[Rfam]
RNA sequence: GGUAUUGCUGAUGACAGUUUGGCUCCCUCUACUGAGUACUGUGAGGAAAACGGCCAUCGUUACCCAAGUCUGUCUGAGAUACU
Numbered sequence: 001g002g003u004a005u006u007g008c009u010g011a012u013g014a015c016a017g018u019u020u021g022g023c024u025c026c027c028u029c030u031a032c033u034g035a036g037u038a039c040u041g042u043g044a045g046g047a048a049a050a051c052g053g054c055c056a057u058c059g060u061u062a063c064c065c066a067a068g069u070c071u072g073u074c075u076g077a078g079a080u081a082c083u
Base pairs, nucleotide, nucleotide: 001083002082003081004080005079006078
The family of this 83-nucleotide RNA from Esox lucius is "Small nucleolar RNA SNORD100". The family's RNA type in Rfam is C/D-box small nucleolar RNA. NCBI's taxonomy places the organism under Eukaryota, Bilateria, Neopterygii, Osteoglossocephalai, Esox. A search with the family's covariance model found it, with a score of 72 bits. Its Rfam clan is "SNORD100 clan".